[Rfam]
RNA: Plastid-ycf3 group II-D1 intron
Organism: Papaver somniferum
RNA sequence: AUUCCUUCUACUGUGUAUCCCCGAUUGAUGCAGCCUCAGAUGCUUCA
Numbered sequence: 001a002u003u004c005c006u007u008c009u010a011c012u013g014u015g016u017a018u019c020c021c022c023g024a025u026u027g028a029u030g031c032a033g034c035c036u037c038a039g040a041u042g043c044u045u046c047a
Base pairs, nucleotide, nucleotide: 010025012023013022032044033043034042